This 73-nucleotide RNA sequence from Daucus carota belongs to the Rfam family "Small nucleolar RNA SNORD18". Lineage of the source: Eukaryota > Streptophyta > Streptophytina > Daucus > Daucus carota. A reference for the family is Prislei et al. (1993), "Two different snoRNAs are encoded in introns of amphibian and human L1 ribosomal protein genes", Nucleic Acids Res. Its family is annotated with RNA processing and nucleolus in the Gene Ontology. The family's RNA type in Rfam is C/D-box small nucleolar RNA. A search with the family's covariance model found it, with a score of 42 bits. The base pairs follow the family's consensus structure, which was predicted with PFOLD.

[Rfam]
RNA sequence: GAGAUGUGAUGAGUAUAUACUUUGGUCCGUGUUUCUGAUCAACUGUGACUGAUUUUAACCAAUCUCUGAUUUC
Numbered sequence: 001g002a003g004a005u006g007u008g009a010u011g012a013g014u015a016u017a018u019a020c021u022u023u024g025g026u027c028c029g030u031g032u033u034u035c036u037g038a039u040c041a042a043c044u045g046u047g048a049c050u051g052a053u054u055u056u057a058a059c060c061a062a063u064c065u066c067u068g069a070u071u072u073c
Stems, first nucleotide, its partner, number of pairs: 001073004